[Rfam]
Description: A member of the RNA family "Ruegeria cis2 sRNA" from Ruegeria pomeroyi, 153 nucleotides long. Rfam classes the family as a small RNA. It is one of the family's seed sequences. The source organism's lineage runs through Bacteria, Pseudomonadati, Alphaproteobacteria, Ruegeria and Ruegeria pomeroyi.
RNA sequence: GUUGCUGUUAUGCGGGAAAUAGUUGCGAAACACGAAGCCACGGCAUUGGUCGAUGGCGUGAAACAGCGGGUUCCAGUCGAACAUGGCCAGCAUGUAACCCGGCAAGGUAUUGGCAACGAACAUCUUGCCCGAGGCGAUCAUGUUGGCGCGCUG
Dot-bracket structure: .(((.((((.(((((.......))))).))))))).((((((((....)))).))))......(((((.((((.....))))...(((((((((...(((((((((((.(((....)))..)))))).))).))....))))))))).)))))